[Rfam]
RNA sequence: UCUUCGAAGACAUCCCACCAUCACCGAACGACUUUCAGCCCGGCUCUCCGCCGGGCUGCU
Numbered sequence: 001u002c003u004u005c006g007a008a009g010a011c012a013u014c015c016c017a018c019c020a021u022c023a024c025c026g027a028a029c030g031a032c033u034u035u036c037a038g039c040c041c042g043g044c045u046c047u048c049c050g051c052c053g054g055g056c057u058g059c060u
Stems, first nucleotide, its partner, number of pairs: 036058009
RNA: Caulobacter sRNA CC0196
Organism: Poindextera montana